[Rfam]
RNA sequence: GGUGAUGGCGGUGCAGGCCUUUCCUGGGGAUUAAUGACCAGCUGGGAGGAGCCGGUGGCCCUUGGCUCUGCCUCCCAGCCAACCAUUAAUUCUAAGGAAAUGUCUUUUGACGAGAUCGUU
Numbered sequence: 001g002g003u004g005a006u007g008g009c010g011g012u013g014c015a016g017g018c019c020u021u022u023c024c025u026g027g028g029g030a031u032u033a034a035u036g037a038c039c040a041g042c043u044g045g046g047a048g049g050a051g052c053c054g055g056u057g058g059c060c061c062u063u064g065g066c067u068c069u070g071c072c073u074c075c076c077a078g079c080c081a082a083c084c085a086u087u088a089a090u091u092c093u094a095a096g097g098a099a100a101u102g103u104c105u106u107u108u109g110a111c112g113a114g115a116u117c118g119u120u
Stems, first nucleotide, its partner, number of pairs: 001120006010111001012109002015105004020100006028092009041079009053070003057067004
Record summary:
Shown here is a 120-nucleotide sequence from Carlito syrichta, a member of the family "mir-763 microRNA precursor family". It scores 112 bits against the family's covariance model. The source organism's lineage runs through Eukaryota, Amniota, Primates, Tarsiiformes and Carlito. Pairs were carried over by alignment from the consensus structure, which was predicted with RNAalifold.